Rfam assigns this 111-nucleotide RNA from Cunninghamia lanceolata to the family "MIR162_1 microRNA precursor family". The source organism's lineage runs through Eukaryota, Acrogymnospermae, Cupressales, Cupressaceae and Cunninghamia. The family is grouped with related families in Rfam's "MIR167 microRNA precursor clan".

RNA sequence: UUAACUGGAGGCAGGGUUUUAUCCAUCCCUUCCUGUUACUGAUUUAAGGCUCUGCUCACAAUUAACUGCAGUUAACAGGCACGGGUUGAUAAACCUCUGCAUCCAGUUUGG
Number, nucleotide and partner (000 for none) at each position: 001u000002u000003a000004a000005c000006u000007g104008g103009a102010g000011g000012c099013a098014g097015g000016g095017u000018u093019u092020u000021a090022u089023c088024c000025a086026u085027c084028c000029c000030u081031u000032c079033c078034u077035g076036u075037u074038a000039c000040u000041g000042a000043u000044u000045u000046a000047a000048g000049g000050c000051u000052c000053u000054g000055c000056u000057c000058a000059c000060a000061a000062u000063u000064a000065a000066c000067u000068g000069c000070a000071g000072u000073u000074a037075a036076c035077a034078g033079g032080c000081a030082c000083g000084g027085g026086u025087u000088g023089a022090u021091a000092a019093a018094c000095c016096u000097c014098u013099g012100c000101a000102u009103c008104c007105a000106g000107u000108u000109u000110g000111g000